[Rfam]
RNA: tRNA
RNA sequence: GCCGCUGUAGCUCAAUCGGUAGAGCACUCGCCUUGUAAGCGAACGGUUGCGGGUUCAAGUCCUGUCAGCGGCU
Numbered sequence: 001g002c003c004g005c006u007g008u009a010g011c012u013c014a015a016u017c018g019g020u021a022g023a024g025c026a027c028u029c030g031c032c033u034u035g036u037a038a039g040c041g042a043a044c045g046g047u048u049g050c051g052g053g054u055u056c057a058a059g060u061c062c063u064g065u066c067a068g069c070g071g072c073u
Stems, first nucleotide, its partner, number of pairs: 001072007010025004028042004049065005